[Rfam]
RNA: sroC RNA
RNA sequence: CAUCGCGGGAAUAAUAAGGGCGGCGCUGCGUCGCCCAAUGAUUGACGAGGACAGAAGCCGGACAGACAGGCCCCGCCCGGACGUUCCCCGGGCGGGGAGAAAACAACAGGCUUCUCAUCAAUCUUAGGGGUAGCGCUGCUGCCCCCUUUCUUCGGAGUUAA
Numbered sequence: 001c002a003u004c005g006c007g008g009g010a011a012u013a014a015u016a017a018g019g020g021c022g023g024c025g026c027u028g029c030g031u032c033g034c035c036c037a038a039u040g041a042u043u044g045a046c047g048a049g050g051a052c053a054g055a056a057g058c059c060g061g062a063c064a065g066a067c068a069g070g071c072c073c074c075g076c077c078c079g080g081a082c083g084u085u086c087c088c089c090g091g092g093c094g095g096g097g098a099g100a101a102a103a104c105a106a107c108a109g110g111c112u113u114c115u116c117a118u119c120a121a122u123c124u125u126a127g128g129g130g131u132a133g134c135g136c137u138g139c140u141g142c143c144c145c146c147u148u149u150c151u152u153c154g155g156a157g158u159u160a161a
Base pairs, nucleotide, nucleotide: 012160013159014158019035020034021033022032024030036129039126040125041122042121043120044119045118047116048115061104063099072096073095074094075093076092077091078090079089080088